The record is a 66-nucleotide RNA from Strigomonas culicis, which matches "Trypanosomatid snoRNA TB9Cs3H1" in Rfam. Taxonomically the source falls in Strigomonas (Eukaryota, Metakinetoplastina, Trypanosomatida, Strigomonadinae). Rfam links the family to the GO terms RNA processing and nucleolus. A reference for the family is Liang et al. (2005), "A genome-wide analysis of C/D and H/ACA-like small nucleolar RNAs in Trypanosoma brucei reveals a trypanosome-specific pattern of rRNA modification", RNA. The match comes from Rfam's covariance-model search (46 bits). Rfam classes the family as an H/ACA-box small nucleolar RNA.
RNA sequence: AGCGUAAUAAACACGGAUAAUUCGGUUAUACUUGGUACUGAAGCACGUCCGCCAGUGUUACUCGAG
Numbered sequence: 001a002g003c004g005u006a007a008u009a010a011a012c013a014c015g016g017a018u019a020a021u022u023c024g025g026u027u028a029u030a031c032u033u034g035g036u037a038c039u040g041a042a043g044c045a046c047g048u049c050c051g052c053c054a055g056u057g058u059u060a061c062u063c064g065a066g
Base pairs, nucleotide, nucleotide: 002063004061005060006059007058008057015050016049017048018047021042022041024039025038026037